The family of this 74-nucleotide sequence from Pomatostomus ruficeps is "mir-1759 microRNA precursor family". The base pairs follow the family's consensus structure, which was predicted with RNAalifold. The organism belongs to Pomatostomus, within Eukaryota.

RNA sequence: GCUGUUUUAGGGUAGGAGGAGGGAGGUGUUACCUUACGAGCUGCCACCUUUCCCAUCCUCUGCUCUGUAGGAGC
Numbered sequence: 001g002c003u004g005u006u007u008u009a010g011g012g013u014a015g016g017a018g019g020a021g022g023g024a025g026g027u028g029u030u031a032c033c034u035u036a037c038g039a040g041c042u043g044c045c046a047c048c049u050u051u052c053c054c055a056u057c058c059u060c061u062g063c064u065c066u067g068u069a070g071g072a073g074c
Stems, first nucleotide, its partner, number of pairs: 001074003005070002008067003011063001014059004018054002021052008030043002033040002